A member of the RNA family "Streptomyces RNA 1601" from Actinacidiphila rubida, 205 nucleotides long. It is annotated as a small RNA. A reference for the family is Vockenhuber et al. (2011), "Deep sequencing-based identification of small non-coding RNAs in Streptomyces coelicolor", RNA Biol. The match comes from Rfam's covariance-model search (143 bits).
RNA sequence: AACGACCGGUCGGGCACCUGUGUGUCCGACCCUCAAGUGGAGGCUCCGAUCUCCCACCUGGUCGACCGUUCAGGUCGACGGGUUCCGGUCAGACGGUACGGCUCAGCACCGCUGAUGCACCACCGUCCGAUGCGCCCCGCGGAAUAACGCGGCGGUGCUCCCGGUUGUGAGGAGCCCCGCCUGUGUCCCGUAUGGGGCGUUUUUC
Numbered sequence: 001a002a003c004g005a006c007c008g009g010u011c012g013g014g015c016a017c018c019u020g021u022g023u024g025u026c027c028g029a030c031c032c033u034c035a036a037g038u039g040g041a042g043g044c045u046c047c048g049a050u051c052u053c054c055c056a057c058c059u060g061g062u063c064g065a066c067c068g069u070u071c072a073g074g075u076c077g078a079c080g081g082g083u084u085c086c087g088g089u090c091a092g093a094c095g096g097u098a099c100g101g102c103u104c105a106g107c108a109c110c111g112c113u114g115a116u117g118c119a120c121c122a123c124c125g126u127c128c129g130a131u132g133c134g135c136c137c138c139g140c141g142g143a144a145u146a147a148c149g150c151g152g153c154g155g156u157g158c159u160c161c162c163g164g165u166u167g168u169g170a171g172g173a174g175c176c177c178c179g180c181c182u183g184u185g186u187c188c189c190g191u192a193u194g195g196g197g198c199g200u201u202u203u204u205c
Stems, first nucleotide, its partner, number of pairs: 004090006012027002028084005034060002037057004041052002061079007092127005100118001103115002134198006140190003148185003151181005157175005
NCBI's taxonomy places the organism under Bacteria, Actinomycetota, Actinomycetes, Kitasatosporales, Actinacidiphila. Pairs were carried over by alignment from the consensus structure.